Rfam assigns this 43-nucleotide RNA sequence from Rosa chinensis to the family "Plastid-rpoB 5UTR RNA". The match comes from Rfam's covariance-model search (45 bits). Rfam classes the family as a cis-regulatory element. The family has 49 seed sequences and 102 matches in Rfam 15.1. On this family, see Richter et al., Plant Commun 2023: "Retrograde signaling in plants: A critical review focusing on the GUN pathway and beyond". The family's consensus secondary structure was predicted with LocARNA. Plastid rpoB is a non-coding RNA (ncRNA) recognised in plastids. It was found in the 5 prime untranslated region (5UTR) of a chloroplast-encoded RNA polymerase subunit (rpoB) in plastids, suggesting a posible cis-regulatory function.
RNA sequence: CUAUAUUGUUUCUAAUUAUUAUGUCUUUGUCUCAUUGAACAGA
Numbered sequence: 001c002u003a004u005a006u007u008g009u010u011u012c013u014a015a016u017u018a019u020u021a022u023g024u025c026u027u028u029g030u031c032u033c034a035u036u037g038a039a040c041a042g043a
Base pairs, nucleotide, nucleotide: 006042007041008040009039010038011037